[Rfam]
RNA sequence: AGGCAACCUCCUUCUGCCUUGAGAAAAGAAAUGGGAAGGAAGGUGUUUAUCUGCUCAUAAAAAGACCUUUUGCUCUUCAGACUUGCUGAGUUUUUCCUUGAAGCUGGUCUAGUAAGCUCAAGAACAUU
Numbered sequence: 001a002g003g004c005a006a007c008c009u010c011c012u013u014c015u016g017c018c019u020u021g022a023g024a025a026a027a028g029a030a031a032u033g034g035g036a037a038g039g040a041a042g043g044u045g046u047u048u049a050u051c052u053g054c055u056c057a058u059a060a061a062a063a064g065a066c067c068u069u070u071u072g073c074u075c076u077u078c079a080g081a082c083u084u085g086c087u088g089a090g091u092u093u094u095u096c097c098u099u100g101a102a103g104c105u106g107g108u109c110u111a112g113u114a115a116g117c118u119c120a121a122g123a124a125c126a127u128u
Base pairs, nucleotide, nucleotide: 002047003046004045005044007043008042009040010039011038012037013036014035015034067122068121069120072117073116074115079110080109081108082107083106085104086103087102090096

A member of the RNA family "Small nucleolar RNA snoR77" from Salvia splendens, 128 nucleotides long. Taxonomically the source falls in core Calosphace (Eukaryota, Streptophytina, Magnoliopsida, Salviinae). It scores 102 bits against the family's covariance model.